[Rfam]
RNA sequence: GAUCUUUCCAUAUUAUAUUUUCGUAUAACCUCACAACAAGGAAGGAAUGCUAUAAGGGUGAGGGUCUCUACGGGAAGCCUUAACUUCCUAACUACGAAUGACGGAUCAUGCAGC
Numbered sequence: 001g002a003u004c005u006u007u008c009c010a011u012a013u014u015a016u017a018u019u020u021u022c023g024u025a026u027a028a029c030c031u032c033a034c035a036a037c038a039a040g041g042a043a044g045g046a047a048u049g050c051u052a053u054a055a056g057g058g059u060g061a062g063g064g065u066c067u068c069u070a071c072g073g074g075a076a077g078c079c080u081u082a083a084c085u086u087c088c089u090a091a092c093u094a095c096g097a098a099u100g101a102c103g104g105a106u107c108a109u110g111c112a113g114c
Base pairs, nucleotide, nucleotide: 018100020098021097022096023095024094025093029063030062031061032060033059034058072089073088074087075086076085077084

Record summary: The record is a 114-nucleotide sequence from Paenibacillus arenilitoris, which matches "Purine riboswitch aptamer" in Rfam. The match comes from Rfam's covariance-model search (43 bits). NCBI's taxonomy places the organism under Bacteria, Bacillati, Bacillota, Paenibacillaceae, Paenibacillus. The base pairs follow the family's consensus structure, which is taken from published work.